[Rfam]
RNA sequence: UUGCCUCAAAUUAAUGAGUAAGGAUAAUAUAGGAUUUGGGUGAUACCUUAUCCACAUAUACGCAAGUAUAUGAGGUUCACCAAAUAUUUGGCGGGAUAAAGACUGGCCUCGAUCGGUUCUUUCCUACAUUGAAAGUUCUAGUUGAGAUUGCUGGUCUCCC
Numbered sequence: 001u002u003g004c005c006u007c008a009a010a011u012u013a014a015u016g017a018g019u020a021a022g023g024a025u026a027a028u029a030u031a032g033g034a035u036u037u038g039g040g041u042g043a044u045a046c047c048u049u050a051u052c053c054a055c056a057u058a059u060a061c062g063c064a065a066g067u068a069u070a071u072g073a074g075g076u077u078c079a080c081c082a083a084a085u086a087u088u089u090g091g092c093g094g095g096a097u098a099a100a101g102a103c104u105g106g107c108c109u110c111g112a113u114c115g116g117u118u119c120u121u122u123c124c125u126a127c128a129u130u131g132a133a134a135g136u137u138c139u140a141g142u143u144g145a146g147a148u149u150g151c152u153g154g155u156c157u158c159c160c
Base pairs, nucleotide, nucleotide: 004023005022006021008019032053033052034051035050038047039046055072056071057070058069059068095160100157101156102155103154104153105152106151109146112143114141116139119135120134121133122132123131
RNA: U12 minor spliceosomal RNA
Organism: Funneliformis geosporum